A member of the RNA family "Cauldobacter sRNA CC3552" from Phenylobacterium sp. Root1277, 112 nucleotides long. For this family Rfam cites "Small non-coding RNAs in Caulobacter crescentus" (Landt et al., Mol Microbiol, 2008).
[Rfam]
Nucleotides: 112
Base pairs, nucleotide, nucleotide: 001059002058003057004056005055006054007053008052009051010050012023013022030049031048032047033046034045035044036043091112092111093110094109095108096107097106098105
Number, partner (000 for none) and nucleotide at each position: 001059g002058g003057a004056g005055g006054c007053g008052g009051c010050g011000a012023c013022g014000c015000c016000c017000c018000c019000c020000c021000c022013c023012g024000a025000c026000u027000u028000g029000a030049g031048a032047c033046c034045g035044g036043c037000g038000a039000c040000c041000a042000u043036g044035c045034c046033g047032g048031u049030c050010u051009g052008c053007c054006g055005c056004c057003u058002c059001c060000g061000c062000a063000c064000c065000c066000c067000u068000u069000u070000u071000c072000u073000c074000g075000a076000u077000g078000a079000u080000g081000c082000g083000c084000a085000c086000u087000c088000a089000a090000g091112a092111g093110g094109c095108g096107g097106g098105c099000c100000c101000u102000a103000g104000a105098g106097c107096c108095c109094g110093c111092c112091u